Overview:
This 116-nucleotide sequence from Sediminibacterium ginsengisoli belongs to the Rfam family "SAM riboswitch aptamer (S box leader)". The match comes from Rfam's covariance-model search (89 bits).
RNA sequence: AACUUAUCAAGAAAGGCAGAGGGAAAUGGCCCUAUGAUGCCUUGGCAACCCAUAUCGCUUACUCAGCGGUACGAAGGUGCCAAUUCCGACCACACGAAAGUGUGGGAAGAUAAGUC
Dot-bracket structure: .(((((((....(((((...(((...[[[)))......)))))((((.(((.((((((.......)))))).)..))))))...(]]].((((((....))))))..)))))))).